[Rfam]
RNA sequence: UGCGCAGGGCGUGUUUCAUCACGAUGUUGGGGAACGAUACCCCCUUAAGCCGCGCGGUUCGGAUGUAUUGCGCCGUCAUGACCUCGGUCAUCGAGGCUCGCGUCAUCCGGGCGAUAUAGCCCAUGCCAUAAAGCGAAAUGGUCAGCACCGGCAGGAAGAAGUUCUCGAAUGUCGGAUUG
Numbered sequence: 001u002g003c004g005c006a007g008g009g010c011g012u013g014u015u016u017c018a019u020c021a022c023g024a025u026g027u028u029g030g031g032g033a034a035c036g037a038u039a040c041c042c043c044c045u046u047a048a049g050c051c052g053c054g055c056g057g058u059u060c061g062g063a064u065g066u067a068u069u070g071c072g073c074c075g076u077c078a079u080g081a082c083c084u085c086g087g088u089c090a091u092c093g094a095g096g097c098u099c100g101c102g103u104c105a106u107c108c109g110g111g112c113g114a115u116a117u118a119g120c121c122c123a124u125g126c127c128a129u130a131a132a133g134c135g136a137a138a139u140g141g142u143c144a145g146c147a148c149c150g151g152c153a154g155g156a157a158g159a160a161g162u163u164c165u166c167g168a169a170u171g172u173c174g175g176a177u178u179g
Base pairs, nucleotide, nucleotide: 005140006139010135011134012133014131015130016128020125021124028123029122030121031120038113040111041110042109046105048103051100052099054097055075056074057073058072060070061069062068082096083095084094085093086092146179147178148175149174150173151172152171153170154165155164156163157162

This 179-nucleotide RNA sequence from Falsiruegeria litorea belongs to the Rfam family "Ruegeria cis52 sRNA". On this family, see Rivers et al., Front Microbiol 2016: "Experimental Identification of Small Non-Coding RNAs in the Model Marine Bacterium Ruegeria pomeroyi DSS-3". It scores 147 bits against the family's covariance model. The family's RNA type in Rfam is small RNA. The family's consensus secondary structure was predicted with RNAfold.